[Rfam]
RNA: mir-9229 microRNA precursor family
RNA sequence: GAGACACCCCUAUAGAGCAGGACUUGCUUCAGUGGGGCUUUAGUGCUCACUGAGUCUGCCCCUUGAGUGGGUCGCU
Numbered sequence: 001g002a003g004a005c006a007c008c009c010c011u012a013u014a015g016a017g018c019a020g021g022a023c024u025u026g027c028u029u030c031a032g033u034g035g036g037g038c039u040u041u042a043g044u045g046c047u048c049a050c051u052g053a054g055u056c057u058g059c060c061c062c063u064u065g066a067g068u069g070g071g072u073c074g075c076u
Stems, first nucleotide, its partner, number of pairs: 001075001003073003007069001009067001011065002015061001017059003021056003029053008037044002